[Rfam]
RNA sequence: CUUGGUACCCGAACACUAGCAUUGACUUGUCUAGUAAGUGCUACUUGUUGGGGUAGUUUGA
Numbered sequence: 001c002u003u004g005g006u007a008c009c010c011g012a013a014c015a016c017u018a019g020c021a022u023u024g025a026c027u028u029g030u031c032u033a034g035u036a037a038g039u040g041c042u043a044c045u046u047g048u049u050g051g052g053g054u055a056g057u058u059u060g061a
Stems, first nucleotide, its partner, number of pairs: 004057001006055005013048003018042006025035003
Shown here is a 61-nucleotide RNA sequence from Oncorhynchus mykiss, a member of the family "miR-430 microRNA precursor family". The family is grouped with related families in Rfam's "mir-290 clan". The literature on the family includes a 2005 paper in Science by Giraldez et al., "MicroRNAs regulate brain morphogenesis in zebrafish". The base pairs follow the family's consensus structure, which was predicted with RNAalifold. Lineage of the source: Eukaryota > Metazoa > Vertebrata > Salmoninae > Oncorhynchus. Gene Ontology terms of the family: miRNA-mediated post-transcriptional gene silencing and RISC complex.